[Rfam]
Shown here is a 165-nucleotide RNA sequence from Miscanthus lutarioriparius, a member of the family "Small nucleolar RNA Z112". The family is grouped with related families in Rfam's "SNORD49 clan".

RNA sequence: GUCCCAAUAAGGAUCUCAAGACCUACCGAUAGGAAGUGCUGUUUGACAAUGUAAACAGCAGCUACUUCUUUCUGCUGCAAGUGUCUAUCCUUCGACCAUAACCUCUGGUCUGAUCUGGGAUGGAGCCCCAUUUGUGGUGUGAUUUAAAUUGAGUCCCUGAGAGGU
Numbered sequence: 001g002u003c004c005c006a007a008u009a010a011g012g013a014u015c016u017c018a019a020g021a022c023c024u025a026c027c028g029a030u031a032g033g034a035a036g037u038g039c040u041g042u043u044u045g046a047c048a049a050u051g052u053a054a055a056c057a058g059c060a061g062c063u064a065c066u067u068c069u070u071u072c073u074g075c076u077g078c079a080a081g082u083g084u085c086u087a088u089c090c091u092u093c094g095a096c097c098a099u100a101a102c103c104u105c106u107g108g109u110c111u112g113a114u115c116u117g118g119g120a121u122g123g124a125g126c127c128c129c130a131u132u133u134g135u136g137g138u139g140u141g142a143u144u145u146a147a148a149u150u151g152a153g154u155c156c157c158u159g160a161g162a163g164g165u
Base pairs, nucleotide, nucleotide: 075137076136077135078134079133080132081131082130083129084124085123086122087121088120089119090118094115095114097112098111101109102108103107

Taxonomically the source falls in Miscanthus (Eukaryota, Streptophyta, Embryophyta, Tracheophyta).